[Rfam]
RNA: mir-8364 microRNA precursor family
RNA sequence: UCUUCAUUUCGCACACUCUCUCGUCGGUUAGAGACAGGCGAGAGAGCGUGCGAAAUGAGGAGA
Numbered sequence: 001u002c003u004u005c006a007u008u009u010c011g012c013a014c015a016c017u018c019u020c021u022c023g024u025c026g027g028u029u030a031g032a033g034a035c036a037g038g039c040g041a042g043a044g045a046g047c048g049u050g051c052g053a054a055a056u057g058a059g060g061a062g063a
Stems, first nucleotide, its partner, number of pairs: 001061007010052001012050003016046002019043004